[Rfam]
RNA sequence: AAAGAGUAGAGGCUAGAAACUACUAUAAAAAACGGGGAAAAUUCCGAAAAUCCAAAGAGUAGGAUAAUC
Dot-bracket structure: .....((((..........))))............(((....[[......)))........]]......